[Rfam]
RNA sequence: AACUGAGGUAGAGGUGCAGAAUUUAAGAGUAGAGUUGAGGAGUUAAGCACUGUGAUACAACUUGAAAGGAAAUUUUGCCGAAGUUAUUUAGCAGAUGCUUUAAUGUUAAGUAAUUGGGUUUACAUAAAAUAUAUGUAAAACUGUCACAAGGUUAAUUUGUGGAGAGCUAUCAUUCGU
Numbered sequence: 001a002a003c004u005g006a007g008g009u010a011g012a013g014g015u016g017c018a019g020a021a022u023u024u025a026a027g028a029g030u031a032g033a034g035u036u037g038a039g040g041a042g043u044u045a046a047g048c049a050c051u052g053u054g055a056u057a058c059a060a061c062u063u064g065a066a067a068g069g070a071a072a073u074u075u076u077g078c079c080g081a082a083g084u085u086a087u088u089u090a091g092c093a094g095a096u097g098c099u100u101u102a103a104u105g106u107u108a109a110g111u112a113a114u115u116g117g118g119u120u121u122a123c124a125u126a127a128a129a130u131a132u133a134u135g136u137a138a139a140a141c142u143g144u145c146a147c148a149a150g151g152u153u154a155a156u157u158u159g160u161g162g163a164g165a166g167c168u169a170u171c172a173u174u175c176g177u
Base pairs, nucleotide, nucleotide: 007171008170009169010168011167016078017077018076019075020074021073022072023071024070032063033062034061035060036059037058039056082115083114084113085112086111087110088109089108090107091106092105093104116142117141119139120138121137122136123135124134125133126132144162145161146160147159148158149157150156
RNA: Lysine riboswitch aptamer
Organism: Clostridium ljungdahlii